[Rfam]
RNA sequence: CCGUGUCAAUGAUGUCACCUUUACCUACAUUGUCUGAUGCUUCCCUGAGAGAAACAAAACACUGAGACACUG
Numbered sequence: 001c002c003g004u005g006u007c008a009a010u011g012a013u014g015u016c017a018c019c020u021u022u023a024c025c026u027a028c029a030u031u032g033u034c035u036g037a038u039g040c041u042u043c044c045c046u047g048a049g050a051g052a053a054a055c056a057a058a059a060c061a062c063u064g065a066g067a068c069a070c071u072g
Stems, first nucleotide, its partner, number of pairs: 001072001004069004
This 72-nucleotide RNA from Neopipo cinnamomea belongs to the Rfam family "Small nucleolar RNA SNORD34". Clan: SNORD34 clan. Gene Ontology terms of the family: nucleolus and RNA processing. From the family's description: snoRNA U34 is found in intron 5 of the ribosomal protein L13a gene in humans. The family's consensus secondary structure was predicted with PFOLD.